[Rfam]
RNA sequence: UGUUAGUCAUAUCACGAUAUAUAUCUAUGAACCCGGUCAGGUCUGGAAAGAAGCAUCCGUAAUAGAAUAAUAUAUAUGCUGAAAUCUGACUAACAGAU
Numbered sequence: 001u002g003u004u005a006g007u008c009a010u011a012u013c014a015c016g017a018u019a020u021a022u023a024u025c026u027a028u029g030a031a032c033c034c035g036g037u038c039a040g041g042u043c044u045g046g047a048a049a050g051a052a053g054c055a056u057c058c059g060u061a062a063u064a065g066a067a068u069a070a071u072a073u074a075u076a077u078g079c080u081g082a083a084a085u086c087u088g089a090c091u092a093a094c095a096g097a098u
Stems, first nucleotide, its partner, number of pairs: 004092005009085002012082003017075006024066005034059003042051003
Dot-bracket structure: ...(((((((.(((..((((((.(((((.....(((.....(((....))).....)))..)))))...))))))....))).))..)))))......
The record is a 98-nucleotide RNA sequence from Candidatus Tachikawaea gelatinosa, which matches "Bacterial small signal recognition particle RNA" in Rfam. On this family, see Rosenblad et al., RNA Biol 2009: "Kinship in the SRP RNA family". Gene Ontology terms of the family: signal recognition particle, plasma membrane targeting and SRP-dependent cotranslational protein targeting to membrane, signal sequence recognition. The base pairs follow the family's consensus structure, which is taken from published work. Lineage of the source: Bacteria > Pseudomonadota > Enterobacterales > Enterobacteriaceae > Candidatus Tachikawaea.